[Rfam]
RNA sequence: CUGCAGCCAACUAAGCUGACUGGGUUCCUGUCCUCAUGGGGUGCGAGGUGCGGUGUCAGAAUGCAGCAGCCUCUUUGAAGUGUAGCAAUUGUUGCUUGUACAGGUUGCCCCAACGUACCUUGAAGACAGUU
Numbered sequence: 001c002u003g004c005a006g007c008c009a010a011c012u013a014a015g016c017u018g019a020c021u022g023g024g025u026u027c028c029u030g031u032c033c034u035c036a037u038g039g040g041g042u043g044c045g046a047g048g049u050g051c052g053g054u055g056u057c058a059g060a061a062u063g064c065a066g067c068a069g070c071c072u073c074u075u076u077g078a079a080g081u082g083u084a085g086c087a088a089u090u091g092u093u094g095c096u097u098g099u100a101c102a103g104g105u106u107g108c109c110c111c112a113a114c115g116u117a118c119c120u121u122g123a124a125g126a127c128a129g130u131u
Stems, first nucleotide, its partner, number of pairs: 002052004021045002025041002028039001077119001086107003089103002